Yersinia sRNA 155(RyfD): a 136-nucleotide RNA sequence from Candidatus Erwinia dacicola. The family's RNA type in Rfam is small RNA. The literature on the family includes a 2016 paper in Proc Natl Acad Sci U S A by Righetti et al., "Temperature-responsive in vitro RNA structurome of Yersinia pseudotuberculosis".
RNA sequence: UAGGACUGUCCGGAUUGAUGUUUUUUUCUCCAGAAUGUCAGGUCAUUAACCUUGAAAAAUUUGAAGGAUGACCUCAUUUAAUCUCCAGUAGCAACUUGACCUGAUAGGGGGAAAUUAUGCAUCUGGAUCGUCUUAC
Numbered sequence: 001u002a003g004g005a006c007u008g009u010c011c012g013g014a015u016u017g018a019u020g021u022u023u024u025u026u027u028c029u030c031c032a033g034a035a036u037g038u039c040a041g042g043u044c045a046u047u048a049a050c051c052u053u054g055a056a057a058a059a060u061u062u063g064a065a066g067g068a069u070g071a072c073c074u075c076a077u078u079u080a081a082u083c084u085c086c087a088g089u090a091g092c093a094a095c096u097u098g099a100c101c102u103g104a105u106a107g108g109g110g111g112a113a114a115u116u117a118u119g120c121a122u123c124u125g126g127a128u129c130g131u132c133u134u135a136c
Stems, first nucleotide, its partner, number of pairs: 002134005008128008018118001020116001022114001024042003030037001050066001052064004067078004082112005089106002